RNA sequence: GUGCAGUGAUGUAUCUGUCAACACAUCAUUCUGAAGAAAAGUAUGUGGUGACUUCUUUUACUGAGCACA
Numbered sequence: 001g002u003g004c005a006g007u008g009a010u011g012u013a014u015c016u017g018u019c020a021a022c023a024c025a026u027c028a029u030u031c032u033g034a035a036g037a038a039a040a041g042u043a044u045g046u047g048g049u050g051a052c053u054u055c056u057u058u059u060a061c062u063g064a065g066c067a068c069a
Stems, first nucleotide, its partner, number of pairs: 001068004

Record summary:
Shown here is a 69-nucleotide RNA sequence from Carlito syrichta, a member of the family "Small nucleolar RNA SNORD63". The family's RNA type in Rfam is C/D-box small nucleolar RNA. About the family: snoRNA U63 is found in both humans and mice. For this family Rfam cites "Purified box C/D snoRNPs are able to reproduce site-specific 2'-O-methylation of target RNA in vitro" (Galardi et al., Mol Cell Biol, 2002). The family has 23 seed sequences and 795 matches in Rfam 15.1. Pairs were carried over by alignment from the consensus structure, which was predicted with PFOLD. The organism belongs to Carlito, within Eukaryota. The match comes from Rfam's covariance-model search (67 bits).